Background
Rfam assigns this 136-nucleotide RNA from Heterocephalus glaber to the family "Small nucleolar RNA U109".
RNA sequence: UUACAUGUGGAAAUCUCUGCCCCCUCAUUCCUUGGGGGUCAGAAAUGCUUCUGUAAUACACUACAUUAAUAGAGGCAUUCUCAGUGCUGCCAGUCUUAUAGUAGAGGUUGAGCGGUAGCAUAUUUCCCUUACAUUA
Numbered sequence: 001u002u003a004c005a006u007g008u009g010g011a012a013a014u015c016u017c018u019g020c021c022c023c024c025u026c027a028u029u030c031c032u033u034g035g036g037g038g039u040c041a042g043a044a045a046u047g048c049u050u051c052u053g054u055a056a057u058a059c060a061c062u063a064c065a066u067u068a069a070u071a072g073a074g075g076c077a078u079u080c081u082c083a084g085u086g087c088u089g090c091c092a093g094u095c096u097u098a099u100a101g102u103a104g105a106g107g108u109u110g111a112g113c114g115g116u117a118g119c120a121u122a123u124u125u126c127c128c129u130u131a132c133a134u135u136a
Base pairs, nucleotide, nucleotide: 006058007057008056016043017042018041019040021038022037023036024035074129075128086116087115090112091110092109093108094107095106096105097104
Dot-bracket structure: .....(((.......((((.((((..........)))).))))............)))...............((..........((..((((((((......))))))).)..))...........)).......
On this family, see Gu et al., Nucleic Acids Res 2005: "A novel experimental approach for systematic identification of box H/ACA snoRNAs from eukaryotes".
Its family is annotated with RNA processing and nucleolus in the Gene Ontology.
The family's consensus secondary structure was predicted with WAR.
Rfam 15.1 lists 1,405 matches to the family in 622 species.
It is annotated as an H/ACA-box small nucleolar RNA.